The record is a 385-nucleotide sequence from Candidatus Magnetomonas plexicatena, which matches "Bacterial RNase P class A" in Rfam. By type it is a ribozyme. The match comes from Rfam's covariance-model search (264 bits).

[Rfam]
RNA sequence: UGAGCAGGUCAUGUGGUCGCUGCCUCCGGCAGGUGUAAAUGCUGGGGGGAGAGGAAAGUCCGGGCUCCGCAGGGCAGGAGGGCUGUUAACGGCAGCCGGGGGAGACCCUAGGGAAAGUGCAACAGAAAGGAUACCGCCUGCGAUGAAUGACUGCGGGUAAGGGUGAAAAGGUGAGGUAAGGGCUCACCGCUUUUAUCGGUAACGAUGAGAGUUUGUAAACCCCCUCUGGAGAAAGGUUGAAUAGGAUUUGCAUUUUGGGCUGCCCGCCCAAUUCCAUAGAGAUAUGGAAGGCAAACGGGUACCAACCGCAGAAGUGGACGGGCAACCGUAGAGCUUAGAUGAAUGACCAUAUAAAACAGAAUCCGGCUUAUGACCUGCUCAUAAA
Numbered sequence: 001u002g003a004g005c006a007g008g009u010c011a012u013g014u015g016g017u018c019g020c021u022g023c024c025u026c027c028g029g030c031a032g033g034u035g036u037a038a039a040u041g042c043u044g045g046g047g048g049g050a051g052a053g054g055a056a057a058g059u060c061c062g063g064g065c066u067c068c069g070c071a072g073g074g075c076a077g078g079a080g081g082g083c084u085g086u087u088a089a090c091g092g093c094a095g096c097c098g099g100g101g102g103a104g105a106c107c108c109u110a111g112g113g114a115a116a117g118u119g120c121a122a123c124a125g126a127a128a129g130g131a132u133a134c135c136g137c138c139u140g141c142g143a144u145g146a147a148u149g150a151c152u153g154c155g156g157g158u159a160a161g162g163g164u165g166a167a168a169a170g171g172u173g174a175g176g177u178a179a180g181g182g183c184u185c186a187c188c189g190c191u192u193u194u195a196u197c198g199g200u201a202a203c204g205a206u207g208a209g210a211g212u213u214u215g216u217a218a219a220c221c222c223c224c225u226c227u228g229g230a231g232a233a234a235g236g237u238u239g240a241a242u243a244g245g246a247u248u249u250g251c252a253u254u255u256u257g258g259g260c261u262g263c264c265c266g267c268c269c270a271a272u273u274c275c276a277u278a279g280a281g282a283u284a285u286g287g288a289a290g291g292c293a294a295a296c297g298g299g300u301a302c303c304a305a306c307c308g309c310a311g312a313a314g315u316g317g318a319c320g321g322g323c324a325a326c327c328g329u330a331g332a333g334c335u336u337a338g339a340u341g342a343a344u345g346a347c348c349a350u351a352u353a354a355a356a357c358a359g360a361a362u363c364c365g366g367c368u369u370a371u372g373a374c375c376u377g378c379u380c381a382u383a384a385a
Stems, first nucleotide, its partner, number of pairs: 001381011012351007020051002023048009056369003060366005065231004075279001077227005082096005097111001098109004112222002117220002119216003134162002136158007144150001170188006191210008235307004245296001247295005273289001275287001314334001315332001318329004